[Rfam]
RNA sequence: AUCGCGCCGUCAGGAGAGAGUUCCGCCAGGAACCGCCGAAGGCGCAACAACGCUCAGGCACCCAGGACUGACAAGCGCCC
Numbered sequence: 001a002u003c004g005c006g007c008c009g010u011c012a013g014g015a016g017a018g019a020g021u022u023c024c025g026c027c028a029g030g031a032a033c034c035g036c037c038g039a040a041g042g043c044g045c046a047a048c049a050a051c052g053c054u055c056a057g058g059c060a061c062c063c064a065g066g067a068c069u070g071a072c073a074a075g076c077g078c079c080c
Stems, first nucleotide, its partner, number of pairs: 009072005020033004035059003038055002042053003